RNA sequence: GGAUGUGAGCGCAAUUUGGCUGUGACAUCUGUCACCCCAUUGUUUGCCAGGGUUGAUUCGGCUGAUCUGGCUGGCUAGGUGGAUGUCCCCUUCCUCUCUCACCGCUCCAUGUGCAUCCCUCUCGAAGCUGUGCGCUCUGUCAAAGAGGACAACCUUCCCCUAUAGAGGAGAGGACCAUCCUUCGGUCAAGUGUAUACAAGUAGUUGUGCUCCCCUGCUAGAACCUCCAAACAAGCUCUCAAAGUGUCACAUAAAUAAAUAAGGCCCUCUUCAUUCUAUUUUUGUUAAUGGACUACAGUGUGUGAAAGCUUAGUCUCCUAU
Numbered sequence: 001g002g003a004u005g006u007g008a009g010c011g012c013a014a015u016u017u018g019g020c021u022g023u024g025a026c027a028u029c030u031g032u033c034a035c036c037c038c039a040u041u042g043u044u045u046g047c048c049a050g051g052g053u054u055g056a057u058u059c060g061g062c063u064g065a066u067c068u069g070g071c072u073g074g075c076u077a078g079g080u081g082g083a084u085g086u087c088c089c090c091u092u093c094c095u096c097u098c099u100c101a102c103c104g105c106u107c108c109a110u111g112u113g114c115a116u117c118c119c120u121c122u123c124g125a126a127g128c129u130g131u132g133c134g135c136u137c138u139g140u141c142a143a144a145g146a147g148g149a150c151a152a153c154c155u156u157c158c159c160c161u162a163u164a165g166a167g168g169a170g171a172g173g174a175c176c177a178u179c180c181u182u183c184g185g186u187c188a189a190g191u192g193u194a195u196a197c198a199a200g201u202a203g204u205u206g207u208g209c210u211c212c213c214c215u216g217c218u219a220g221a222a223c224c225u226c227c228a229a230a231c232a233a234g235c236u237c238u239c240a241a242a243g244u245g246u247c248a249c250a251u252a253a254a255u256a257a258a259u260a261a262g263g264c265c266c267u268c269u270u271c272a273u274u275c276u277a278u279u280u281u282u283g284u285u286a287a288u289g290g291a292c293u294a295c296a297g298u299g300u301g302u303g304a305a306a307g308c309u310u311a312g313u314c315u316c317c318u319a320u
Base pairs, nucleotide, nucleotide: 001108002107003106005102006101007100008099009098011096014092018090019089024087025086026085027084028083029082030081031080032079033078035074036073037070038069039068042067044065045064046062047061048060116173117172118168119167120166121165122139124137125136127135128134140162147158148157149156203308204307205306210301212299214297215296216295224290225289230284231283232282233281234280
RNA: 7SK RNA